[Rfam]
RNA: RNA anti-toxin A
RNA sequence: UACUACAGAUAGAAAAAGAAGCCUUGCGCUAACAAGACUUCCCAUGUAGAGCCGUUUAAGACGGUGAUAAAGUUUAAUAAUAGAUUAAA
Numbered sequence: 001u002a003c004u005a006c007a008g009a010u011a012g013a014a015a016a017a018g019a020a021g022c023c024u025u026g027c028g029c030u031a032a033c034a035a036g037a038c039u040u041c042c043c044a045u046g047u048a049g050a051g052c053c054g055u056u057u058a059a060g061a062c063g064g065u066g067a068u069a070a071a072g073u074u075u076a077a078u079a080a081u082a083g084a085u086u087a088a089a
Base pairs, nucleotide, nucleotide: 023036024035025034026033051065052064053063054062055061056060